[Rfam]
RNA sequence: UAAUAACCUUGUUAGGUGAGGCUCCUAUACAAACAUAGGCUAUUGCCCAGAAACGUCGAAAGUCGCCAAUGGGUAAAACAGAAACUGUCGGAUUAAGGCUUUUUCCAAUAGCUAAGAAUGUUUUCUUUACGUUGUAUAGUGCUAAAACUCGGACGAUGAGAUGAUGCUA
Numbered sequence: 001u002a003a004u005a006a007c008c009u010u011g012u013u014a015g016g017u018g019a020g021g022c023u024c025c026u027a028u029a030c031a032a033a034c035a036u037a038g039g040c041u042a043u044u045g046c047c048c049a050g051a052a053a054c055g056u057c058g059a060a061a062g063u064c065g066c067c068a069a070u071g072g073g074u075a076a077a078a079c080a081g082a083a084a085c086u087g088u089c090g091g092a093u094u095a096a097g098g099c100u101u102u103u104u105c106c107a108a109u110a111g112c113u114a115a116g117a118a119u120g121u122u123u124u125c126u127u128u129a130c131g132u133u134g135u136a137u138a139g140u141g142c143u144a145a146a147a148c149u150c151g152g153a154c155g156a157u158g159a160g161a162u163g164a165u166g167c168u169a
Stems, first nucleotide, its partner, number of pairs: 005165001007163001009161002011154002013096001015149003020143003025139008039112004045074005054065002057062001081105004087099003114127003
The family of this 169-nucleotide sequence from Enterococcus faecium is "M-box riboswitch aptamer (ykoK leader)". It is one of the family's seed sequences. Lineage of the source: Bacteria > Bacillota > Bacilli > Enterococcaceae > Enterococcus. The base pairs follow the family's consensus structure.